Small Cajal body-specific RNA 7: a 313-nucleotide RNA sequence from Delphinapterus leucas.
Gene Ontology terms of the family: nucleolus and RNA processing.
RNA sequence: UGGAAAUGAUGAAAUAGAGAUAAUUGGGUGUUGAAUGUUGUAUGAUUGGAAGAUUUUAAUACGUAAGUAAUCUAAUAUUUUUUAGCUAUUUGUUAGAGUGUGUGUGCAUGUGUGUGUGCUUGUGGAGGCUAUGAAAAGGGGGCACUGACUGGUGAUGCUGACGUUGGAGUGCAUCUGAGGCUGUUGUAGAAAUACAUGGGUUGUUGAUUACAACAUUGCCGAUGAUUAUAACCCAAGAACAGCUCACCUAAGUAGCCUAGCACCCUAAAAUCUCUAACAGGUUCAUUAAACAUGAUCCUGUGAUCUGAUCCAA
Numbered sequence: 001u002g003g004a005a006a007u008g009a010u011g012a013a014a015u016a017g018a019g020a021u022a023a024u025u026g027g028g029u030g031u032u033g034a035a036u037g038u039u040g041u042a043u044g045a046u047u048g049g050a051a052g053a054u055u056u057u058a059a060u061a062c063g064u065a066a067g068u069a070a071u072c073u074a075a076u077a078u079u080u081u082u083u084a085g086c087u088a089u090u091u092g093u094u095a096g097a098g099u100g101u102g103u104g105u106g107c108a109u110g111u112g113u114g115u116g117u118g119c120u121u122g123u124g125g126a127g128g129c130u131a132u133g134a135a136a137a138g139g140g141g142g143c144a145c146u147g148a149c150u151g152g153u154g155a156u157g158c159u160g161a162c163g164u165u166g167g168a169g170u171g172c173a174u175c176u177g178a179g180g181c182u183g184u185u186g187u188a189g190a191a192a193u194a195c196a197u198g199g200g201u202u203g204u205u206g207a208u209u210a211c212a213a214c215a216u217u218g219c220c221g222a223u224g225a226u227u228a229u230a231a232c233c234c235a236a237g238a239a240c241a242g243c244u245c246a247c248c249u250a251a252g253u254a255g256c257c258u259a260g261c262a263c264c265c266u267a268a269a270a271u272c273u274c275u276a277a278c279a280g281g282u283u284c285a286u287u288a289a290a291c292a293u294g295a296u297c298c299u300g301u302g303a304u305c306u307g308a309u310c311c312a313a
Stems, first nucleotide, its partner, number of pairs: 001312004182215008191205004195200001
A reference for the family is Darzacq et al. (2002), "Cajal body-specific small nuclear RNAs: a novel class of 2'-O-methylation and pseudouridylation guide RNAs", EMBO J.